[Rfam]
RNA sequence: GUUGUAAUCGGACGGGAAUGACGCCAGCGAUUGCAAUACAAGCGGACUGGGGGAAAGUAGAUGUAAUACCGCACAUAUCGGUGGCGAAGCUAGUGCCGAUUCUACGAACGACUGGCGGGU
Number, nucleotide and partner (000 for none) at each position: 001g037002u036003u035004g034005u033006a032007a031008u030009c029010g028011g000012a000013c000014g000015g000016g000017a000018a000019u000020g000021a000022c000023g000024c050025c049026a048027g047028c010029g009030a008031u007032u006033g005034c004035a003036a002037u001038a000039c000040a000041a000042g072043c071044g070045g069046a067047c027048u026049g025050g024051g000052g000053g000054a000055a000056a000057g000058u104059a103060g102061a101062u000063g000064u000065a000066a000067u046068a000069c045070c044071g043072c042073a000074c000075a000076u000077a100078u099079c098080g097081g096082u095083g000084g000085c000086g000087a000088a000089g116090c115091u114092a113093g112094u111095g082096c081097c080098g079099a078100u077101u061102c060103u059104a058105c000106g000107a000108a000109c000110g000111a094112c093113u092114g091115g090116c089117g000118g000119g000120u000
Shown here is a 120-nucleotide RNA sequence, a member of the family "Betaproteobacteria-1 RNA". The family's RNA type in Rfam is small RNA.